[Rfam]
Rfam assigns this 75-nucleotide RNA sequence from Alligator mississippiensis to the family "Mammalian CPEB3 ribozyme". The mammalian CPEB3 ribozyme is a self cleaving RNA located in the second intron of the CPEB3 gene which belongs to a family of genes regulating messenger RNA polyadenylation.
Nucleotides: 075
Base pairs, nucleotide, nucleotide: 013043014042015040016039019075021073022072023071024070025069027037028036047064048063049062050061051060052059053058
Number, partner (000 for none) and nucleotide at each position: 001000u002000c003000a004000c005000a006000a007000g008000c009000u010000c011000a012000a013043g014042g015040c016039c017000a018000u019075a020000a021073c022072a023071g024070a025069a026000g027037c028036a029000c030000u031000c032000a033000c034000a035000g036028u037027g038000a039016g040015g041000u042014c043013c044000u045000g046000u047064c048063a049062g050061a051060u052059u053058c054000c055000a056000a057000u058053g059052a060051a061050u062049u063048u064047g065000c066000a067000a068000a069025u070024u071023c072022u073021g074000c075019u